[Rfam]
RNA sequence: CAAAUCAAUGGCGAUGGAGCUCGCCAAAACCGCCAUUCCAGCCUGUUCUGGAAGGCUGAUAGCUCCUACUUUCCU
Numbered sequence: 001c002a003a004a005u006c007a008a009u010g011g012c013g014a015u016g017g018a019g020c021u022c023g024c025c026a027a028a029a030c031c032g033c034c035a036u037u038c039c040a041g042c043c044u045g046u047u048c049u050g051g052a053a054g055g056c057u058g059a060u061a062g063c064u065c066c067u068a069c070u071u072u073c074c075u
Base pairs, nucleotide, nucleotide: 010025011024012023013022016066017065018064019063020062021061032056033055034054
The record is a 75-nucleotide sequence from aff. Roholtiella sp. LEGE 12411, which matches "Fluoride riboswitch aptamer (crcB RNA motif)" in Rfam. For this family Rfam cites "Widespread genetic switches and toxicity resistance proteins for fluoride" (Baker et al., Science, 2012). Taxonomically the source falls in Roholtiella (Bacteria, Bacillati, Cyanophyceae, Nostocales).